A member of the RNA family "mir-3689 microRNA precursor family" from Gorilla gorilla, 72 nucleotides long.
RNA sequence: GGGAGGUGUGAUAUCGUGGUUCCUGGGAGGUGUGAUCCCAUGCUUCCUGGGAGGUGUGAUCCCAUGCUUCCU
Number, nucleotide and partner (000 for none) at each position: 001g071002g070003g069004a068005g067006g000007u000008g000009u000010g000011a000012u000013a000014u059015c058016g057017u056018g055019g000020u053021u052022c051023c050024u049025g048026g047027g046028a045029g044030g000031u042032g041033u040034g039035a000036u000037c000038c000039c034040a033041u032042g031043c000044u029045u028046c027047c026048u025049g024050g023051g022052a021053g020054g000055u018056g017057u016058g015059a014060u000061c000062c000063c000064a000065u000066g000067c005068u004069u003070c002071c001072u000

Rfam links the family to the GO terms RISC complex and miRNA-mediated post-transcriptional gene silencing. Taxonomically the source falls in Gorilla gorilla (Eukaryota, Vertebrata, Euteleostomi, Dipnotetrapodomorpha).